The record is a 68-nucleotide RNA from Adhaeribacter pallidiroseus, which matches "Fluoride riboswitch aptamer (crcB RNA motif)" in Rfam. The match comes from Rfam's covariance-model search (53 bits). Pairs were carried over by alignment from the consensus structure, which is taken from published work.
RNA sequence: GUUGCAACAGGAAAUGGUGUCUUCCUGCCUCAACCGCUCACAAAAGAGCUGAUGGCGCCUGCAAAUAA
Numbered sequence: 001g002u003u004g005c006a007a008c009a010g011g012a013a014a015u016g017g018u019g020u021c022u023u024c025c026u027g028c029c030u031c032a033a034c035c036g037c038u039c040a041c042a043a044a045a046g047a048g049c050u051g052a053u054g055g056c057g058c059c060u061g062c063a064a065a066u067a068a
Stems, first nucleotide, its partner, number of pairs: 010025004016059006036049004